RNA sequence: GAAGCUGGCUAGACAGUCGCUGCGAGCCUUGUGCUCGGAGAGGAAAGUCCGGGCUCCACAGAGCAGAAUGCCGGUUAAUGGCCGGACGCCGUGAGGCGAUGGAAAGUGCAACAGAGAAUAGACCGCCGAUGAGCUGAUUUCGGUCAGAGACAGGUAAGGGUGAAACGGUGGGGUAAGAGCCCACCGCGCUGCCGGUAACGGGAGUGGCACGGUAAACCCCAUUCGGAGCAAGAUCAAAUAGGCUGACUAUGACGUUGCUCGCGUCGUCAGCGGGUAGAUUGCUUGAGCGUCAGGUAACGAAACGCCUAGAGGAAUGACUGUCCACGACAGAACCCGGCUUAUCGGCCAGCUUCACCU
Numbered sequence: 001g002a003a004g005c006u007g008g009c010u011a012g013a014c015a016g017u018c019g020c021u022g023c024g025a026g027c028c029u030u031g032u033g034c035u036c037g038g039a040g041a042g043g044a045a046a047g048u049c050c051g052g053g054c055u056c057c058a059c060a061g062a063g064c065a066g067a068a069u070g071c072c073g074g075u076u077a078a079u080g081g082c083c084g085g086a087c088g089c090c091g092u093g094a095g096g097c098g099a100u101g102g103a104a105a106g107u108g109c110a111a112c113a114g115a116g117a118a119u120a121g122a123c124c125g126c127c128g129a130u131g132a133g134c135u136g137a138u139u140u141c142g143g144u145c146a147g148a149g150a151c152a153g154g155u156a157a158g159g160g161u162g163a164a165a166c167g168g169u170g171g172g173g174u175a176a177g178a179g180c181c182c183a184c185c186g187c188g189c190u191g192c193c194g195g196u197a198a199c200g201g202g203a204g205u206g207g208c209a210c211g212g213u214a215a216a217c218c219c220c221a222u223u224c225g226g227a228g229c230a231a232g233a234u235c236a237a238a239u240a241g242g243c244u245g246a247c248u249a250u251g252a253c254g255u256u257g258c259u260c261g262c263g264u265c266g267u268c269a270g271c272g273g274g275u276a277g278a279u280u281g282c283u284u285g286a287g288c289g290u291c292a293g294g295u296a297a298c299g300a301a302a303c304g305c306c307u308a309g310a311g312g313a314a315u316g317a318c319u320g321u322c323c324a325c326g327a328c329a330g331a332a333c334c335c336g337g338c339u340u341a342u343c344g345g346c347c348a349g350c351u352u353c354a355c356c357u
Stems, first nucleotide, its partner, number of pairs: 001353010011342001012322007020040002023037005045340003049337005054228004061260004066224005071085005086100001087098004101219002106217002108213002123159002125155003130150001167185006186208001187206004192201003232280004242271006251265005287305004293298001